[Rfam]
RNA sequence: AGGCCCGAAAAGACAGACAGGGUCUGAUCCGCAGCCUCUGUGGCAGCUGUUGAUCAGCCGUUGCCUCUCUCUUUCUCCCUG
Number, nucleotide and partner (000 for none) at each position: 001a000002g000003g000004c000005c000006c000007g000008a073009a072010a000011a070012g069013a068014c000015a066016g065017a000018c063019a062020g061021g000022g059023u000024c057025u056026g055027a054028u053029c052030c000031g000032c049033a048034g047035c046036c000037u000038c000039u000040g000041u000042g000043g000044c000045a000046g035047c034048u033049g032050u000051u000052g029053a028054u027055c026056a025057g024058c000059c022060g000061u020062u019063g018064c000065c016066u015067c000068u013069c012070u011071c000072u009073u008074u000075c000076u000077c000078c000079c000080u000081g000
RNA: mir-574 microRNA precursor family
Organism: Myotis lucifugus